[Rfam]
RNA sequence: GUCUGACACGGCCCGACGGUGGCGAGUCUCGCCCCAUCAUUCGGCCGUGGUUCCAUGAC
Numbered sequence: 001g002u003c004u005g006a007c008a009c010g011g012c013c014c015g016a017c018g019g020u021g022g023c024g025a026g027u028c029u030c031g032c033c034c035c036a037u038c039a040u041u042c043g044g045c046c047g048u049g050g051u052u053c054c055a056u057g058a059c
Stems, first nucleotide, its partner, number of pairs: 007049007015042002018035002021033005